[Rfam]
RNA sequence: ACACAGCCGUCUGGAGAGCCGCCACGCCCGCCGUGGCGCACCGAAGGAGCAAGUGCCGCGCACGGUCCCGCGCGGCAUGAAUCUCUCAGGUACCAAGGACAGGGGGAGCGGC
Numbered sequence: 001a002c003a004c005a006g007c008c009g010u011c012u013g014g015a016g017a018g019c020c021g022c023c024a025c026g027c028c029c030g031c032c033g034u035g036g037c038g039c040a041c042c043g044a045a046g047g048a049g050c051a052a053g054u055g056c057c058g059c060g061c062a063c064g065g066u067c068c069c070g071c072g073c074g075g076c077a078u079g080a081a082u083c084u085c086u087c088a089g090g091u092a093c094c095a096a097g098g099a100c101a102g103g104g105g106g107a108g109c110g111g112c
Base pairs, nucleotide, nucleotide: 007106008105010103011102012101013100020038021037022036023035024034025033040091041090042089043087044086047085048084049083053078054077055076056075057074058073059072060071061070
Annotation
The family of this 112-nucleotide RNA sequence from Diaphorobacter sp. J5-51 is "Glycine riboswitch aptamer". It scores 52 bits against the family's covariance model. On this family, see Mandal et al., Science 2004: "A glycine-dependent riboswitch that uses cooperative binding to control gene expression". The source organism's lineage runs through Bacteria, Betaproteobacteria, Burkholderiales, Comamonadaceae and Diaphorobacter.